[Rfam]
RNA sequence: UCGCGCUAGACGGGGAGGUAGCGGUGCCCUGUAACCCGUAAUCCGCUAUAACGGGGUUGAAUUCCUGUCCGAGGCCCAUUUUGUGUGGGGUCUGGUCUGCAUGGAUCAGUGCUGACGGCCGGGUCCUGCGCAACGGGAGCUUCUGAACCGUGUCAGGUCCUGACGGAAGCAGCACUAAGGAAGAUUUCCCGUGUGCCGCAGGGGCGCCUGGUCUGAGCUGAUUGUGCAGUGCCCGCCCAUGCAGAUGGGUCGGAGACAGGUGCGCGG
Numbered sequence: 001u002c003g004c005g006c007u008a009g010a011c012g013g014g015g016a017g018g019u020a021g022c023g024g025u026g027c028c029c030u031g032u033a034a035c036c037c038g039u040a041a042u043c044c045g046c047u048a049u050a051a052c053g054g055g056g057u058u059g060a061a062u063u064c065c066u067g068u069c070c071g072a073g074g075c076c077c078a079u080u081u082u083g084u085g086u087g088g089g090g091u092c093u094g095g096u097c098u099g100c101a102u103g104g105a106u107c108a109g110u111g112c113u114g115a116c117g118g119c120c121g122g123g124u125c126c127u128g129c130g131c132a133a134c135g136g137g138a139g140c141u142u143c144u145g146a147a148c149c150g151u152g153u154c155a156g157g158u159c160c161u162g163a164c165g166g167a168a169g170c171a172g173c174a175c176u177a178a179g180g181a182a183g184a185u186u187u188c189c190c191g192u193g194u195g196c197c198g199c200a201g202g203g204g205c206g207c208c209u210g211g212u213c214u215g216a217g218c219u220g221a222u223u224g225u226g227c228a229g230u231g232c233c234c235g236c237c238c239a240u241g242c243a244g245a246u247g248g249g250u251c252g253g254a255g256a257c258a259g260g261u262g263c264g265c266g267g
Stems, first nucleotide, its partner, number of pairs: 001267006009058003012030004017025001019023001035055005064260006073251005080245010094232001097229006105222002108219003117213008125202006131193002134191005140183005150175004158167003
Dot-bracket structure: ((((((..(((((((.(.(...).).))))....(((((...........)))))))).....((((((...(((((..((((((((((....(..((((((..((.(((......((((((((((((((((.(((((.(((((.....((((....(((....)))....))))...)))))...)))))))...))))))...))))))))...))).)).))))))..)...)))))))))).)))))...)))))).))))))